[Rfam]
RNA sequence: UUCUUAUCGAGAGAGGCGGAGGGACUGGCCCUGCGAUGCCCGGCAACCGAUUGUAUAAUUUGUACAAUCAAUGGUGCUAAUUCCAGCAGGUAUAACCUGAAAGAUGAGAG
Number, nucleotide and partner (000 for none) at each position: 001u110002u109003c108004u107005u106006a105007u104008c103009g000010a000011g000012a000013g041014a000015g040016g039017c038018g000019g000020a000021g031022g030023g029024a000025c086026u085027g084028g083029c023030c022031c021032u000033g000034c000035g000036a000037u000038g017039c016040c015041c013042g078043g077044c076045a075046a000047c074048c073049g069050a068051u067052u066053g065054u064055a063056u000057a000058a000059u000060u000061u000062g000063u055064a054065c053066a052067a051068u050069c049070a000071a000072u000073g048074g047075u045076g044077c043078u042079a000080a000081u000082u102083c028084c027085a026086g025087c099088a098089g097090g096091u095092a000093u000094a000095a091096c090097c089098u088099g087100a000101a000102a082103g008104a007105u006106g005107a004108g003109a002110g001